The record is a 267-nucleotide RNA sequence from Listeria grayi, which matches "Bacterial large signal recognition particle RNA" in Rfam. On this family, see Rosenblad et al., Nucleic Acids Res 2003: "SRPDB: Signal Recognition Particle Database". The family's consensus secondary structure is taken from published work.

RNA sequence: CCGUGCUAGAUGGGGAGAUAGCGGCGCCCUGUAACCCGCAAUCCGCUCUAGCGGGAUUGAAUUCCUCAUUUGAGGCUUAUCUAUUGUUUGGCCUGCCCUUAACAAGUGGUGUUGACAGCUUGGUCUUGCGCAAUGGGAACCUGUGAACCAUGUCAGGUCCGGAAGGAAGCAGCAUUAAGCAGUGCUUCCCAUGUGCCGCGAGGUUGCCGGGCUCGAGCUAACUAUUAAGGUAACGCGAGUGAUAGUAAGUCGAUAUGAGGUGCACGG
Dot-bracket structure: ((((((..(((((((.(.(...).).))))....(((((...........)))))))).....((((((....(((((..((((((((((...((..(((((...(((((......((((((((((((((((.(((((..((((.....((((....(((....)))....))))...))))....)))))))...))))))...))))))))...))).))..))))).))...)))))))))).)))))...)))))).))))))